[Rfam]
RNA sequence: UCCGGUGUCGUUCAACGGCAGGACGGGCGGCUGUUAACCGCCUAAUCGGGGUUCGAAUCCCUGCACCGGAG
Number, nucleotide and partner (000 for none) at each position: 001u070002c069003c068004g067005g066006u065007g064008u000009c000010g024011u023012u022013c021014a000015a000016c000017g000018g000019c000020a000021g013022g012023a011024c010025g000026g042027g041028c040029g039030g038031c000032u000033g000034u000035u000036a000037a000038c030039c029040g028041c027042c026043u000044a000045a000046u000047c063048g062049g061050g060051g059052u000053u000054c000055g000056a000057a000058u000059c051060c050061c049062u048063g047064c007065a006066c005067c004068g003069g002070a001071g000